RNA sequence: CCUGUCGUUUUCCCGACAGUAGCCUAAGAGGGCAGGCGUGGCUGGUAACGGCUGGGUCUGAAGCCUCUCUGACAAUGUAGCCCACUCUGAAAGGAUGAUGCUAAAACUGUGAGGUGGAAGCGGAACUGCGAGCAUUACGCGGUAGGGAGC
Numbered sequence: 001c002c003u004g005u006c007g008u009u010u011u012c013c014c015g016a017c018a019g020u021a022g023c024c025u026a027a028g029a030g031g032g033c034a035g036g037c038g039u040g041g042c043u044g045g046u047a048a049c050g051g052c053u054g055g056g057u058c059u060g061a062a063g064c065c066u067c068u069c070u071g072a073c074a075a076u077g078u079a080g081c082c083c084a085c086u087c088u089g090a091a092a093g094g095a096u097g098a099u100g101c102u103a104a105a106a107c108u109g110u111g112a113g114g115u116g117g118a119a120g121c122g123g124a125a126c127u128g129c130g131a132g133c134a135u136u137a138c139g140c141g142g143u144a145g146g147g148a149g150c
Stems, first nucleotide, its partner, number of pairs: 002019006028069005033060005039054006083097002086094002099122004107114002125143006
A member of the RNA family "Group II catalytic intron D1-D4-7" from Candidatus Gallionella acididurans, 150 nucleotides long. From the family's description: Group II introns are found in rRNA, tRNA and mRNA of organelles in fungi, plants and protists, and also in mRNA in bacteria. Gene Ontology term of the family: Group II intron splicing. On this family, see Bonen and Vogel, Trends Genet 2001: "The ins and outs of group II introns". The base pairs follow the family's consensus structure. Taxonomically the source falls in Gallionella (Bacteria, Pseudomonadota, Betaproteobacteria, Gallionellaceae).